[Rfam]
RNA sequence: GACUGUGGACGACCGCAGUGCUCCCUCACUUUGCGGGACGGCCCG
Numbered sequence: 001g002a003c004u005g006u007g008g009a010c011g012a013c014c015g016c017a018g019u020g021c022u023c024c025c026u027c028a029c030u031u032u033g034c035g036g037g038a039c040g041g042c043c044c045g
Stems, first nucleotide, its partner, number of pairs: 002019007034045004